[Rfam]
RNA sequence: UUUAUGGAGAGUUUGAUCCUGGCUCAGGAUGAACGCUGGCGGCGUGCCUAAUACAUGCAAGUCGUGCGGCAGCGCGAGUAGUUUACUACUUGGCGGCGAGCGGCGAACGGCUGAGUAACGCGUAGGAAUGUACCCCAAAGUGAGGGAUAAGCUCCAGAAAUGGAGUCUAAUACCGCAUAUGGUCUUCGGAUUAAAGCUUUCGAGCGCUUUGGGAACAGCCUGCGUCCGAUUAGGUUGUUGGUGAGGUAAUGGCUCACCAAGCCGACGAUCGGUAGCUGGUCUGAGAGGAUGACCAGCCAGACUGGAACUGAGACACGGUCCAGACUCCUACGGGAGGCAGCAGUAAGGAAUCUUCCACAAUGGGGGCAACCCUGAUGGAGCAACGCCGCGUGCAGGACGAAGGCCUUCGGGUUGUAAACUGCUUUUAUGAGCGAAGAAUUUGACGGUAACUCAUGAAUAAGGGCCGGCUAACUACGUGCCAGCAGCCGCGGUCAUACGUAGGGCCCGAGCGUUAUCCGGAGUGACUG
Numbered sequence: 001u002u003u004a005u006g007g008a009g010a011g012u013u014u015g016a017u018c019c020u021g022g023c024u025c026a027g028g029a030u031g032a033a034c035g036c037u038g039g040c041g042g043c044g045u046g047c048c049u050a051a052u053a054c055a056u057g058c059a060a061g062u063c064g065u066g067c068g069g070c071a072g073c074g075c076g077a078g079u080a081g082u083u084u085a086c087u088a089c090u091u092g093g094c095g096g097c098g099a100g101c102g103g104c105g106a107a108c109g110g111c112u113g114a115g116u117a118a119c120g121c122g123u124a125g126g127a128a129u130g131u132a133c134c135c136c137a138a139a140g141u142g143a144g145g146g147a148u149a150a151g152c153u154c155c156a157g158a159a160a161u162g163g164a165g166u167c168u169a170a171u172a173c174c175g176c177a178u179a180u181g182g183u184c185u186u187c188g189g190a191u192u193a194a195a196g197c198u199u200u201c202g203a204g205c206g207c208u209u210u211g212g213g214a215a216c217a218g219c220c221u222g223c224g225u226c227c228g229a230u231u232a233g234g235u236u237g238u239u240g241g242u243g244a245g246g247u248a249a250u251g252g253c254u255c256a257c258c259a260a261g262c263c264g265a266c267g268a269u270c271g272g273u274a275g276c277u278g279g280u281c282u283g284a285g286a287g288g289a290u291g292a293c294c295a296g297c298c299a300g301a302c303u304g305g306a307a308c309u310g311a312g313a314c315a316c317g318g319u320c321c322a323g324a325c326u327c328c329u330a331c332g333g334g335a336g337g338c339a340g341c342a343g344u345a346a347g348g349a350a351u352c353u354u355c356c357a358c359a360a361u362g363g364g365g366g367c368a369a370c371c372c373u374g375a376u377g378g379a380g381c382a383a384c385g386c387c388g389c390g391u392g393c394a395g396g397a398c399g400a401a402g403g404c405c406u407u408c409g410g411g412u413u414g415u416a417a418a419c420u421g422c423u424u425u426u427a428u429g430a431g432c433g434a435a436g437a438a439u440u441u442g443a444c445g446g447u448a449a450c451u452c453a454u455g456a457a458u459a460a461g462g463g464c465c466g467g468c469u470a471a472c473u474a475c476g477u478g479c480c481a482g483c484a485g486c487c488g489c490g491g492u493c494a495u496a497c498g499u500a501g502g503g504c505c506c507g508a509g510c511g512u513u514a515u516c517c518g519g520a521g522u523g524a525c526u527g
Stems, first nucleotide, its partner, number of pairs: 009025005027517004032513006039389006045382002047347001052345003056342003061104003066101002069097002075092007111300003120225007129217002134213007142176001144174002151166006182191003196205003226272003233263003238260008275297004279290004302323005325336004353379001355378003361374005392422004402413004427454005436444001461506005472501005482489002
Rfam assigns this 527-nucleotide part of an RNA from candidate division TM7 genomosp. GTL1 to the family "Bacterial small subunit ribosomal RNA".
Lineage of the source: Bacteria > Bacteria candidate phyla > Candidatus Saccharimonadota.
Clan: SSU clan.
The sequence is in the family's curated seed alignment.